The record is a 69-nucleotide RNA from Peromyscus maniculatus, which matches "Small nucleolar RNA SNORD42" in Rfam. Lineage of the source: Eukaryota > Euteleostomi > Amniota > Neotominae > Peromyscus maniculatus.
[Rfam]
RNA sequence: GUGCAUAUGAUGGAAAAAACUUAAAGUCUCCUGAGACCUGUGAUGUCUUCAAAGGAACCACUGAUGCGC
Number, nucleotide and partner (000 for none) at each position: 001g069002u068003g067004c066005a065006u000007a000008u000009g000010a000011u000012g000013g000014a000015a000016a000017a000018a000019a000020c000021u000022u000023a000024a000025a000026g000027u000028c000029u000030c000031c000032u000033g000034a000035g000036a000037c000038c000039u000040g000041u000042g000043a000044u000045g000046u000047c000048u000049u000050c000051a000052a000053a000054g000055g000056a000057a000058c000059c000060a000061c000062u000063g000064a000065u005066g004067c003068g002069c001
A reference for the family is Huttenhofer et al. (2001), "RNomics: an experimental approach that identifies 201 candidates for novel, small, non-messenger RNAs in mouse", EMBO J. By type it is a C/D-box small nucleolar RNA. A search with the family's covariance model found it, with a score of 81 bits.